Shown here is a 96-nucleotide RNA sequence from Phyllobacterium endophyticum, a member of the family "Alphaproteobacterial ar15". The family is grouped with related families in Rfam's "suhB sRNA clan". It is annotated as a small RNA. The pairing is the family consensus, mapped onto this sequence. The family has 61 seed sequences and 316 matches in Rfam 15.1. The literature on the family includes a 2012 paper in RNA Biol by del Val et al., "A survey of sRNA families in alpha-proteobacteria".

RNA sequence: GCGUAACGAGUGGUUCUCCUCCCAUUUUACACUCGUUGCGUGUUCCCCUCUGGACGCGUUAGCGUUCACAAUUCGCCGGGCUUAUGCCCGGCUUUU
Number, nucleotide and partner (000 for none) at each position: 001g041002c040003g039004u038005a037006a000007c035008g034009a033010g032011u031012g030013g000014u000015u000016c000017u000018c000019c000020u000021c000022c000023c000024a000025u000026u000027u000028u000029a000030c012031a011032c010033u009034c008035g007036u000037u005038g004039c003040g002041u001042g000043u000044u000045c000046c000047c000048c000049u000050c000051u068052g067053g066054a065055c064056g063057c062058g000059u000060u000061a000062g057063c056064g055065u054066u053067c052068a051069c000070a000071a000072u000073u000074c000075g000076c091077c090078g089079g088080g087081c086082u000083u000084a000085u000086g081087c080088c079089c078090g077091g076092c000093u000094u000095u000096u000